[Rfam]
Nucleotides: 080
Base pairs, nucleotide, nucleotide: 013080014079015078017076019074020073022034023033024032045066046065047064048063050061051060053059
Number, partner (000 for none) and nucleotide at each position: 001000u002000u003000c004000c005000u006000a007000c008000a009000a010000a011000a012000u013080c014079c015078u016000a017076u018000c019074u020073c021000c022034a023033c024032c025000u026000c027000c028000a029000c030000g031000u032024g033023g034022u035000g036000a037000c038000c039000g040000c041000u042000g043000a044000g045066a046065g047064c048063u049000c050061u051060u052000u053059c054000u055000u056000a057000a058000c059053g060051a061050a062000a063048a064047g065046c066045u067000g068000c069000a070000g071000g072000a073020g074019g075000a076017a077000a078015a079014g080013g

drz-agam-1 ribozyme: an 80-nucleotide RNA from Hermetia illucens. NCBI's taxonomy places the organism under Eukaryota, Altocrustacea, Neoptera, Panorpida, Hermetia. It scores 40 bits against the family's covariance model. The base pairs follow the family's consensus structure, which is taken from published work.